[Rfam]
RNA sequence: UGCGCCGCCACGGGGUGCGCCAACCAUCACUGAGUUUUGAUGGUAAGGCACUGAGAUCCAUUGGAAACCCGUUGAACCUGAUCCGGAUAGUACCGGCGUAGGGAUGGUGUUGGUCCAACAG
Number, nucleotide and partner (000 for none) at each position: 001u000002g000003c000004g000005c000006c109007g108008c107009c106010a105011c071012g070013g069014g068015g000016u065017g051018c000019g049020c048021c047022a000023a000024c000025c000026a000027u000028c000029a000030c000031u000032g000033a000034g000035u000036u000037u000038u000039g000040a000041u000042g000043g000044u000045a000046a000047g021048g020049c019050a000051c017052u000053g000054a000055g000056a000057u000058c064059c063060a000061u000062u000063g059064g058065a016066a000067a000068c014069c013070c012071g011072u000073u000074g000075a000076a000077c102078c101079u100080g099081a000082u000083c096084c095085g094086g093087a000088u000089a000090g000091u000092a000093c086094c085095g084096g083097c000098g000099u080100a079101g078102g077103g000104a000105u010106g009107g008108u007109g006110u000111u000112g000113g000114u000115c000116c000117a000118a000119c000120a000121g000
Rfam assigns this 121-nucleotide RNA sequence from Ferrimonas marina to the family "TPP riboswitch aptamer (THI element)". The match comes from Rfam's covariance-model search (69 bits). Rfam's curators write: Vitamin B(1) in its active form thiamin pyrophosphate (TPP) is an essential coenzyme that is synthesised by coupling of pyrimidine and thiazole moieties in bacteria. The organism belongs to Ferrimonas, within Bacteria.